[Rfam]
The family of this 106-nucleotide RNA sequence from a Rhodospirillaceae bacterium is "Group II catalytic intron D1-D4-4".
Taxonomically the source falls in Rhodospirillaceae (Bacteria, Pseudomonadota, Alphaproteobacteria, Rhodospirillales).
From the family's description: Group II introns are found in rRNA, tRNA and mRNA of organelles in fungi, plants and protists, and also in mRNA in bacteria.
For this family Rfam cites "The ins and outs of group II introns" (Bonen and Vogel, Trends Genet, 2001).
Rfam 15.1 lists 840 matches to the family in 506 species.

RNA sequence: CAGUGGGUGCGAGGCCCCCCCGGCGAACGCUCCAGCCGGAAGCAACCGGAGCAGUCAUGGAGGUGACGAAAUGGCUGAAGCCUUCGGGUACCCGCGACAAAUGGAU
Dot-bracket structure: ...................(((((..........))))).......(((((((((((....(....)....))))))....))))).........(.(.....).)